[Rfam]
RNA sequence: CAGUGUCCAUGACGUUAAAAUACUAAAUCCCUGGGAUGUGUUUUAGUUGAUUUUAGUCUCUG
Numbered sequence: 001c002a003g004u005g006u007c008c009a010u011g012a013c014g015u016u017a018a019a020a021u022a023c024u025a026a027a028u029c030c031c032u033g034g035g036a037u038g039u040g041u042u043u044u045a046g047u048u049g050a051u052u053u054u055a056g057u058c059u060c061u062g
Stems, first nucleotide, its partner, number of pairs: 001062003005058001014047010028036003
RNA: Selenocysteine insertion sequence 1
Organism: Mytilus coruscus